Record summary:
Rfam assigns this 360-nucleotide RNA from Columba livia to the family "ncRNA Repressor of NFAT (nuclear factor of activated T cells)".
RNA sequence: UGCCGCCCAGCGCACACAGCCCUUCGUGUGCUGUGCUAAUCCACAUCAGAAAACCUCGUUUAAUGAGGAGUGAUAUAGUUACGAACUCUCUAGAGUCAUAAUUAGAGCAAACUAAUUGAAGUUGUGUUUUGACACACUUUCCAAAUUCACUGGUACUGCAUGACAUAUUCACAACACUACUGCUGCACAGCCAUGGCGACAGCAAAAUCAUUAGGCUAAUAACGCUUAUUUGCAUUCUUAUCAUGCCAGCAGCAUGCCGUUAAAUACUGCUCCAACCAGUGCUCGUUCGCUCUGAAAGUUUCCACCAAAAGAUAUUAACAGUAAUUAUUAGUGCUUUAGUGGAAUCUCUAAUGCUGAGGA
Numbered sequence: 001u002g003c004c005g006c007c008c009a010g011c012g013c014a015c016a017c018a019g020c021c022c023u024u025c026g027u028g029u030g031c032u033g034u035g036c037u038a039a040u041c042c043a044c045a046u047c048a049g050a051a052a053a054c055c056u057c058g059u060u061u062a063a064u065g066a067g068g069a070g071u072g073a074u075a076u077a078g079u080u081a082c083g084a085a086c087u088c089u090c091u092a093g094a095g096u097c098a099u100a101a102u103u104a105g106a107g108c109a110a111a112c113u114a115a116u117u118g119a120a121g122u123u124g125u126g127u128u129u130u131g132a133c134a135c136a137c138u139u140u141c142c143a144a145a146u147u148c149a150c151u152g153g154u155a156c157u158g159c160a161u162g163a164c165a166u167a168u169u170c171a172c173a174a175c176a177c178u179a180c181u182g183c184u185g186c187a188c189a190g191c192c193a194u195g196g197c198g199a200c201a202g203c204a205a206a207a208u209c210a211u212u213a214g215g216c217u218a219a220u221a222a223c224g225c226u227u228a229u230u231u232g233c234a235u236u237c238u239u240a241u242c243a244u245g246c247c248a249g250c251a252g253c254a255u256g257c258c259g260u261u262a263a264a265u266a267c268u269g270c271u272c273c274a275a276c277c278a279g280u281g282c283u284c285g286u287u288c289g290c291u292c293u294g295a296a297a298g299u300u301u302c303c304a305c306c307a308a309a310a311g312a313u314a315u316u317a318a319c320a321g322u323a324a325u326u327a328u329u330a331g332u333g334c335u336u337u338a339g340u341g342g343a344a345u346c347u348c349u350a351a352u353g354c355u356g357a358g359g360a
Stems, first nucleotide, its partner, number of pairs: 034353002037350002040343005048335002055070003059066002075328008086095003105284005118140004123136005151259003156252001181198005202246003215233002218230004
It is annotated as a non-coding RNA gene.